This 75-nucleotide sequence from Dracunculus medinensis belongs to the Rfam family "SmY spliceosomal RNA". The match comes from Rfam's covariance-model search (44 bits). Taxonomically the source falls in Dracunculus (Eukaryota, Bilateria, Rhabditida, Dracunculidae). The base pairs follow the family's consensus structure, which is taken from published work. Rfam 15.1 lists 408 matches to the family in 67 species.
RNA sequence: AGACGUAUUCCUUUAAGUUCAGGGCCUUAUUCAAGACCCGUAGGAAAUUUUUGCGGGACCCUCAGGAGAGGGCCU
Numbered sequence: 001a002g003a004c005g006u007a008u009u010c011c012u013u014u015a016a017g018u019u020c021a022g023g024g025c026c027u028u029a030u031u032c033a034a035g036a037c038c039c040g041u042a043g044g045a046a047a048u049u050u051u052u053g054c055g056g057g058a059c060c061c062u063c064a065g066g067a068g069a070g071g072g073c074c075u
Stems, first nucleotide, its partner, number of pairs: 022039003026035003057074001059072005